[Rfam]
RNA sequence: UUGUGCGGGGAGUUUUGUUGGUUUGCUCUCAGCCUCUCGCCUCGCGCUCGCUGUGCAAAUCCAUGCAAAGCUCUCUGCGCCU
Numbered sequence: 001u002u003g004u005g006c007g008g009g010g011a012g013u014u015u016u017g018u019u020g021g022u023u024u025g026c027u028c029u030c031a032g033c034c035u036c037u038c039g040c041c042u043c044g045c046g047c048u049c050g051c052u053g054u055g056c057a058a059a060u061c062c063a064u065g066c067a068a069a070g071c072u073c074u075c076u077g078c079g080c081c082u
Base pairs, nucleotide, nucleotide: 003080004079005078006077007076008075009074010073011072012071013070014069015068016067017066018065020062021061022059023058024057025056026055028053031052032051033050

mir-19 microRNA precursor family: an 82-nucleotide RNA sequence from Kryptolebias marmoratus. The family's consensus secondary structure was predicted with RNAalifold. Rfam links the family to the GO terms RISC complex and miRNA-mediated post-transcriptional gene silencing. Taxonomically the source falls in Kryptolebias (Eukaryota, Bilateria, Deuterostomia, Clupeocephala).